[Rfam]
RNA sequence: UGGUGCUUUGCUUCAACAGUGUUUGAACGGGCAUCU
Numbered sequence: 001u002g003g004u005g006c007u008u009u010g011c012u013u014c015a016a017c018a019g020u021g022u023u024u025g026a027a028c029g030g031g032c033a034u035c036u
Stems, first nucleotide, its partner, number of pairs: 002035007010028001012027005017021001

Overview
The family of this 36-nucleotide RNA sequence from Trichonephila clavata is "Iron response element I". The family has 62 seed sequences and 6,829 matches in Rfam 15.1. Pairs were carried over by alignment from the consensus structure, which is taken from published work. Its family is annotated with response to iron ion in the Gene Ontology. The match comes from Rfam's covariance-model search (42 bits).